[Rfam]
MIR4374 microRNA precursor family: a 119-nucleotide sequence from Glycine max. It is one of the family's seed sequences. The family's consensus secondary structure was predicted with RNAalifold. Lineage of the source: Eukaryota > Viridiplantae > Streptophytina > Phaseoleae > Glycine subgen. Soja.
RNA sequence: UUAAGACAGUGCUUACCUCAACAACGUCUUUGAAAGUAGACAUUCUAAGACGUUGCUGAUAUAAGCACCGUCUUAAAAUGCGUACUUUCAAAGACGUUGCUGAUGUAAGCACCGUUUUU
Numbered sequence: 001u002u003a004a005g006a007c008a009g010u011g012c013u014u015a016c017c018u019c020a021a022c023a024a025c026g027u028c029u030u031u032g033a034a035a036g037u038a039g040a041c042a043u044u045c046u047a048a049g050a051c052g053u054u055g056c057u058g059a060u061a062u063a064a065g066c067a068c069c070g071u072c073u074u075a076a077a078a079u080g081c082g083u084a085c086u087u088u089c090a091a092a093g094a095c096g097u098u099g100c101u102g103a104u105g106u107a108a109g110c111a112c113c114g115u116u117u118u119u
Stems, first nucleotide, its partner, number of pairs: 004117004009112008018103003022099017041080004046075007054067004